[Rfam]
RNA sequence: AAGAGCCUUGAGCCAAUAAAAACUGAGAAAAUUGACUCAAAAACAAAU
Numbered sequence: 001a002a003g004a005g006c007c008u009u010g011a012g013c014c015a016a017u018a019a020a021a022a023c024u025g026a027g028a029a030a031a032u033u034g035a036c037u038c039a040a041a042a043a044c045a046a047a048u
Stems, first nucleotide, its partner, number of pairs: 008040001010038003014034004
About this RNA: Plastid-rpl16 group II-D1 intron: a 48-nucleotide RNA from Eutrema halophilum. The family's consensus secondary structure was predicted with LocARNA. Rfam 15.1 lists 1,446 matches to the family in 693 species. Plastid-rpl16 is a non-coding RNA (ncRNA) recognised in plastids. It was recognised in and intronic region of a ribosome rpl16 gene. A reference for the family is Richter et al. (2023), "Retrograde signaling in plants: A critical review focusing on the GUN pathway and beyond", Plant Commun. Rfam's curators put it in the seed alignment. Rfam links the family to the GO term Group II intron splicing. Taxonomically the source falls in Eutrema (Eukaryota, Euphyllophyta, Gunneridae, Brassicales).